[Rfam]
RNA sequence: ACUCAGGCACGACCCGUUUCGCUCAUGGCGAGUGCACGACGGGGACGACCUGAAGUCUCAAUCCUGAGGGA
Number, nucleotide and partner (000 for none) at each position: 001a056002c055003u054004c052005a051006g050007g049008c000009a000010c000011g000012a000013c043014c042015c041016g040017u039018u038019u000020c034021g033022c032023u031024c030025a000026u000027g000028g000029c000030g024031a023032g022033u021034g020035c000036a000037c000038g018039a017040c016041g015042g014043g013044g000045a000046c000047g000048a000049c007050c006051u005052g004053a000054a003055g002056u001057c000058u000059c000060a000061a000062u000063c000064c000065u000066g000067a000068g000069g000070g000071a000
Shown here is a 71-nucleotide sequence from Corynebacterium glucuronolyticum, a member of the family "L31-Corynebacteriaceae ribosomal protein leader". It is one of the family's seed sequences. By type it is a cis-regulatory leader. NCBI's taxonomy places the organism under Bacteria, Bacillati, Actinomycetota, Actinomycetes, Corynebacterium glucuronolyticum. Its Rfam clan is "Ribosomal Protein L31 Leader clan". On this family, see Eckert and Weinberg, BMC Microbiol 2020: "Discovery of 20 novel ribosomal leader candidates in bacteria and archaea".